[Rfam]
A member of the RNA family "Glycine riboswitch aptamer" from Ramlibacter pinisoli, 93 nucleotides long. Pairs were carried over by alignment from the consensus structure.
RNA sequence: UGGCGGCCGUCAGGAGAGUGCUUCCGCCCCGGAAGCCGCCGAAGGCGCAGGCGCACAGCCGAACGCUCAGGCACCAAGGACUGACAAGCAUCC
Numbered sequence: 001u002g003g004c005g006g007c008c009g010u011c012a013g014g015a016g017a018g019u020g021c022u023u024c025c026g027c028c029c030c031g032g033a034a035g036c037c038g039c040c041g042a043a044g045g046c047g048c049a050g051g052c053g054c055a056c057a058g059c060c061g062a063a064c065g066c067u068c069a070g071g072c073a074c075c076a077a078g079g080a081c082u083g084a085c086a087a088g089c090a091u092c093c
Stems, first nucleotide, its partner, number of pairs: 009085005020036004038072003041068002045066003050060002